Annotation
A member of the RNA family "6S / SsrS RNA" from Methylovulum psychrotolerans, 183 nucleotides long. A search with the family's covariance model found it, with a score of 83 bits. Rfam classes the family as a non-coding RNA gene. The source organism's lineage runs through Bacteria, Pseudomonadati, Pseudomonadota, Gammaproteobacteria and Methylovulum. E. coli 6S RNA was the first non coding RNA to be sequenced, but its function was unknown until recently. It consists of 184 nucleotides that fold into an extended hairpin structure with a large single-stranded internal bulge. The 6S RNA specifically associates with RNA polymerase holoenzyme containing the sigma70 specificity factor. This interaction represses expression from a sigma70-dependent promoter during stationary phase. 6S RNA homologs have recently been identified in most bacterial genomes. Many Gram-positive species have two copies of 6S RNA. In Bacillus subtilis, both copies appear to interact with RNA polymerase holoenzyme containing the housekeeping sigma factor and be expressed during different stages of growth. In many proteobacteria, 6S RNA may be processed from a transcript encoding homologs of the E. coli YgfA protein which is a putative 5-formyltetrahydrofolate cycloligase activity.

RNA sequence: UAUCUCCUGCGGUGUUCGACAGUGUGCUGGGUGUUUCCUGAACCUGUAUUAACCCCGGGGGCUUGUUGCUUAGCUCAUGGUGUGCAUGCUUGUUUUAGACAAGAAGCCUGAAUGGCUAGCCGUGUCUCCACUUGAACUGUCGGUUCAAGGACGAAAGUGCGUAUCGGCACAGGCGGGAGAUAC
Numbered sequence: 001u002a003u004c005u006c007c008u009g010c011g012g013u014g015u016u017c018g019a020c021a022g023u024g025u026g027c028u029g030g031g032u033g034u035u036u037c038c039u040g041a042a043c044c045u046g047u048a049u050u051a052a053c054c055c056c057g058g059g060g061g062c063u064u065g066u067u068g069c070u071u072a073g074c075u076c077a078u079g080g081u082g083u084g085c086a087u088g089c090u091u092g093u094u095u096u097a098g099a100c101a102a103g104a105a106g107c108c109u110g111a112a113u114g115g116c117u118a119g120c121c122g123u124g125u126c127u128c129c130a131c132u133u134g135a136a137c138u139g140u141c142g143g144u145u146c147a148a149g150g151a152c153g154a155a156a157g158u159g160c161g162u163a164u165c166g167g168c169a170c171a172g173g174c175g176g177g178a179g180a181u182a183c
Base pairs, nucleotide, nucleotide: 002181003180004179005178006177007176008175009174010173012170013169014168015167017166018165019164035151036150037149039147040146041145042144043143044142059129060128061127064124065123066122068120070119071118072117073116074115075114077113078112084107085106089103090102091101092100093099